RNA sequence: AACGAUAAACGCUAUGUGCAGUAAACGUUGCGGACCCGGGGGCAGAACCCGGCGCCUCCACCAAAAAAGAAAUCAAUUCUUUUUCUCUGGGGGCGAAUUAGGAUCGACGUACGUUGGACCAUAUGGUUUUCGUUCACUAUGGUACCAGUGUAUUGGGCCAAAAACAUAAAUGCGAACUUUAACAACGCAUUUGGCGAAGUUGCCGUUAAGAAAGCCGCGAAUGGUGAACUUUCGGCCGGUGUACGGUAUGCUAUAGCUGCUUAG
Numbered sequence: 001a002a003c004g005a006u007a008a009a010c011g012c013u014a015u016g017u018g019c020a021g022u023a024a025a026c027g028u029u030g031c032g033g034a035c036c037c038g039g040g041g042g043c044a045g046a047a048c049c050c051g052g053c054g055c056c057u058c059c060a061c062c063a064a065a066a067a068a069g070a071a072a073u074c075a076a077u078u079c080u081u082u083u084u085c086u087c088u089g090g091g092g093g094c095g096a097a098u099u100a101g102g103a104u105c106g107a108c109g110u111a112c113g114u115u116g117g118a119c120c121a122u123a124u125g126g127u128u129u130u131c132g133u134u135c136a137c138u139a140u141g142g143u144a145c146c147a148g149u150g151u152a153u154u155g156g157g158c159c160a161a162a163a164a165c166a167u168a169a170a171u172g173c174g175a176a177c178u179u180u181a182a183c184a185a186c187g188c189a190u191u192u193g194g195c196g197a198a199g200u201u202g203c204c205g206u207u208a209a210g211a212a213a214g215c216c217g218c219g220a221a222u223g224g225u226g227a228a229c230u231u232u233c234g235g236c237c238g239g240u241g242u243a244c245g246g247u248a249u250g251c252u253a254u255a256g257c258u259g260c261u262u263a264g
Stems, first nucleotide, its partner, number of pairs: 001134005014124004026113003030110003036052005053095007135150004
RNA: permuted transfer-messenger RNA
Organism: Holospora curviuscula